[Rfam]
RNA: Small nucleolar RNA SNORA72
Organism: Molossus molossus
RNA sequence: CUAAGAAUAUUCUCACUUUUCUGAUUUUGUAAUGAUCAGAGCAGGCUAAACAGUUGCUUUAUGAAGACCAUGCAUGUCUUUAGACCUGGUUCUUUCCCUACGUCCGGUUUCAUAGAUGCUGGUGAUAGAC
Numbered sequence: 001c002u003a004a005g006a007a008u009a010u011u012c013u014c015a016c017u018u019u020u021c022u023g024a025u026u027u028u029g030u031a032a033u034g035a036u037c038a039g040a041g042c043a044g045g046c047u048a049a050a051c052a053g054u055u056g057c058u059u060u061a062u063g064a065a066g067a068c069c070a071u072g073c074a075u076g077u078c079u080u081u082a083g084a085c086c087u088g089g090u091u092c093u094u095u096c097c098c099u100a101c102g103u104c105c106g107g108u109u110u111c112a113u114a115g116a117u118g119c120u121g122g123u124g125a126u127a128g129a130c
Stems, first nucleotide, its partner, number of pairs: 005055001016044002019041008067123004072119002080107002083104003087100003